Rfam assigns this 136-nucleotide RNA sequence from Delphinapterus leucas to the family "Small nucleolar RNA SNORA58". It is annotated as an H/ACA-box small nucleolar RNA. The base pairs follow the family's consensus structure, which was predicted with PFOLD. Gene Ontology terms of the family: RNA processing and nucleolus. ACA52 is a member of the H/ACA class of snoRNA that guide the sites of modification of uridines to pseudouridines. On this family, see Huttenhofer et al., EMBO J 2001: "RNomics: an experimental approach that identifies 201 candidates for novel, small, non-messenger RNAs in mouse".
RNA sequence: GGGCAUACUUGUAGACCUUGCCUGACUGUCCCCAUGGCCAGGCAGCGGGGACAGUGUAUGCAAGAGUAAUAUGGAGUUUGUGCCAGUUCAAGCCAGCUUAAUCAAUGGCUGGACAAAUUGCAGUACUCCAACAUUC
Numbered sequence: 001g002g003g004c005a006u007a008c009u010u011g012u013a014g015a016c017c018u019u020g021c022c023u024g025a026c027u028g029u030c031c032c033c034a035u036g037g038c039c040a041g042g043c044a045g046c047g048g049g050g051a052c053a054g055u056g057u058a059u060g061c062a063a064g065a066g067u068a069a070u071a072u073g074g075a076g077u078u079u080g081u082g083c084c085a086g087u088u089c090a091a092g093c094c095a096g097c098u099u100a101a102u103c104a105a106u107g108g109c110u111g112g113a114c115a116a117a118u119u120g121c122a123g124u125a126c127u128c129c130a131a132c133a134u135u136c
Stems, first nucleotide, its partner, number of pairs: 003061006016047001018045007073129004078125001081122003093112005